[Rfam]
RNA sequence: AAUAGCCUUAAGCUCUUUUAGAAUUUGUCUAGCAGCUUUUCCAGUCUUCAGUGGAAGGCCCCC
Numbered sequence: 001a002a003u004a005g006c007c008u009u010a011a012g013c014u015c016u017u018u019u020a021g022a023a024u025u026u027g028u029c030u031a032g033c034a035g036c037u038u039u040u041c042c043a044g045u046c047u048u049c050a051g052u053g054g055a056a057g058g059c060c061c062c063c
Stems, first nucleotide, its partner, number of pairs: 035060001037058007045050001